[Rfam]
RNA sequence: UUUGGGAAAUAAUGAGACUGUUAAACAAUAAUGUUUGUUCAUAGGCUCUAUUCGAUUAUCUGGGCUGUGCUGAACAAUCUUUUGCACGUCAGUCUGAUUCCAAA
Numbered sequence: 001u002u003u004g005g006g007a008a009a010u011a012a013u014g015a016g017a018c019u020g021u022u023a024a025a026c027a028a029u030a031a032u033g034u035u036u037g038u039u040c041a042u043a044g045g046c047u048c049u050a051u052u053c054g055a056u057u058a059u060c061u062g063g064g065c066u067g068u069g070c071u072g073a074a075c076a077a078u079c080u081u082u083u084g085c086a087c088g089u090c091a092g093u094c095u096g097a098u099u100c101c102a103a104a
Stems, first nucleotide, its partner, number of pairs: 001104007

The family of this 104-nucleotide RNA from Coffea arabica is "Small nucleolar RNA Z122". Lineage of the source: Eukaryota > Viridiplantae > Pentapetalae > Gentianales > Coffea. The base pairs follow the family's consensus structure, which was predicted with PFOLD. The literature on the family includes a 2003 paper in Nucleic Acids Res by Chen et al., "The high diversity of snoRNAs in plants: identification and comparative study of 120 snoRNA genes from Oryza sativa".